[Rfam]
RNA sequence: GGUCCUGUAGAGCAGAGGCAGACUCGUCGCCUUGCCAAGGCGGAUACGCCGGUUCGAAUCCGGCCGGGACCA
Numbered sequence: 001g002g003u004c005c006u007g008u009a010g011a012g013c014a015g016a017g018g019c020a021g022a023c024u025c026g027u028c029g030c031c032u033u034g035c036c037a038a039g040g041c042g043g044a045u046a047c048g049c050c051g052g053u054u055c056g057a058a059u060c061c062g063g064c065c066g067g068g069a070c071c072a
Base pairs, nucleotide, nucleotide: 001071002070003069004068005067006066007065010025011024012023027043028042029041030040031039048064049063050062051061052060
RNA: tRNA